Background:
Rfam assigns this 98-nucleotide RNA from Enterococcus florum to the family "THF (Tetrahydrofolate) riboswitch aptamer". It scores 87 bits against the family's covariance model. For this family Rfam cites "A eubacterial riboswitch class that senses the coenzyme tetrahydrofolate" (Ames et al., Chem Biol, 2010). The source organism's lineage runs through Bacteria, Bacillati, Lactobacillales, Enterococcaceae and Enterococcus. Rfam describes the family as follows. Tetrahydrofolate (THF) riboswitch was first reported for Ames et al. as an RNA motif in 5' untranslated (5'-UTR)regions of folate transport and biosynthesis genes in Firmicutes genomes.
[Rfam]
RNA sequence: AUCAGAGUAGAAAGCAAAGCGUUAAGUGCUGAAAGGAUGGGAUGUUGCCUUUUGGACGAAAGACUUCGGUCUGCGGUUUUGUUUUCGCAUUCGCUGCA
Numbered sequence: 001a002u003c004a005g006a007g008u009a010g011a012a013a014g015c016a017a018a019g020c021g022u023u024a025a026g027u028g029c030u031g032a033a034a035g036g037a038u039g040g041g042a043u044g045u046u047g048c049c050u051u052u053u054g055g056a057c058g059a060a061a062g063a064c065u066u067c068g069g070u071c072u073g074c075g076g077u078u079u080u081g082u083u084u085u086c087g088c089a090u091u092c093g094c095u096g097c098a
Stems, first nucleotide, its partner, number of pairs: 003096003010086010020075003026057002029055008040092005061072004